The record is a 59-nucleotide RNA sequence from Clostridium sp. 'deep sea', which matches "Fluoride riboswitch aptamer (crcB RNA motif)" in Rfam.
[Rfam]
RNA sequence: UCAGCUAGUGGCGAUGGAGUUCGCCCUUAAAUGCUUAAGCUAAUGACUCCUACAGUGGC
Dot-bracket structure: .........[[[[..((((((]]]].......((....))....)))))).........
Rfam links the family to the GO terms positive regulation of gene expression and response to fluoride. The match comes from Rfam's covariance-model search (50 bits).